[Rfam]
RNA sequence: AAAAUGGACCCAAAGGCGGUUUUUGGUAUUUCCAUAUAAAAUAAAUAGGGAAUAAUACUAGAAUUGACAUUUU
Number, nucleotide and partner (000 for none) at each position: 001a073002a072003a071004a070005u069006g068007g000008a000009c000010c026011c025012a024013a023014a022015g021016g000017c000018g000019g000020u000021u015022u014023u013024u012025g011026g010027u054028a053029u052030u051031u050032c049033c048034a000035u000036a000037u000038a000039a000040a000041a000042u000043a000044a000045a000046u000047a000048g033049g032050g031051a030052a029053u028054a027055a000056u000057a000058c000059u000060a000061g000062a000063a000064u000065u000066g000067a000068c006069a005070u004071u003072u002073u001
RNA: Mitochondrion-encoded tmRNA
Organism: Pythium oligandrum